[Rfam]
RNA sequence: CUUCAGGGAGCCCAGCCACAGCGGCCGCCCCGCCGUUUUGGCCUGCCCGUACGUGGCCAGCAGCGCGUCCGCCUC
Numbered sequence: 001c002u003u004c005a006g007g008g009a010g011c012c013c014a015g016c017c018a019c020a021g022c023g024g025c026c027g028c029c030c031c032g033c034c035g036u037u038u039u040g041g042c043c044u045g046c047c048c049g050u051a052c053g054u055g056g057c058c059a060g061c062a063g064c065g066c067g068u069c070c071g072c073c074u075c
Stems, first nucleotide, its partner, number of pairs: 015025003031071002038065001043060003047056003
Rfam assigns this 75-nucleotide RNA from Streptomyces avermitilis to the family "ASpks TB sRNA". Rfam classes the family as an antisense RNA.